RNA: Bacterial RNase P class A
RNA sequence: GCCGCAGACCGCCUUAUCGUCCCGCUUCAGUUGGGGAGGAAAGUCCGGACACCAUAGAGAAGCAUAGCGGGUAAUGCCCGUCAUCCCGAGCAAUCAGGAGAGGACAAGUGCAACAGAAAGUAUGUACAGGUAAUGCUGUAGUGAAACCAGGUAAACUCUAUGCGGUGAAAUUUCAAGUAUAUCGGCAUUUAAGGGCUUCUCGUCCGUUGUCGAAGGGUAGAAAGAUGGAGUACGUGAGUAAUUGCGUGCCUAGAUAAAUGAUAAGGCCACGCUCAAGCGUGGACAGAAUCCGGCUUAUAGGUCUGCUUUUUUU
Dot-bracket structure: (..(((((((((((((((.(((((.(...).)))))....[[[.[[[[[((((...[[[[.((((((((((.....)))))(.(((..........)))..)((...((((.............(((((......)))))..........))..)))))))))))))...((((.......(((((......((((.]]]]))))...)))))......))))......((((((((....))))))))..........)))))))......................]]]]]]]].).)))))))..)....